[Rfam]
RNA sequence: CGCCGCUCGACUUGACACAACAUUCUGCAGCAAUGUUGUGCGACCUGCAGUGUCAGUCCAGCAGCC
Numbered sequence: 001c002g003c004c005g006c007u008c009g010a011c012u013u014g015a016c017a018c019a020a021c022a023u024u025c026u027g028c029a030g031c032a033a034u035g036u037u038g039u040g041c042g043a044c045c046u047g048c049a050g051u052g053u054c055a056g057u058c059c060a061g062c063a064g065c066c
Stems, first nucleotide, its partner, number of pairs: 002065002005062003009058004019037006042054003
The family of this 66-nucleotide RNA sequence from Fulvia fulva is "bZIP non canonical Hac1/Xbp1 intron".
The organism belongs to Fulvia, within Eukaryota.
From the family's description: bZIP intron RNA is a non-canonical intron that was first reported in HAC1 gene in yeast and XBP1 gene in Metazoa.
For this family Rfam cites "Conserved RNA structures in the non-canonical Hac1/Xbp1 intron" (Hooks and Griffiths-Jones, RNA Biol, 2011).
It scores 46 bits against the family's covariance model.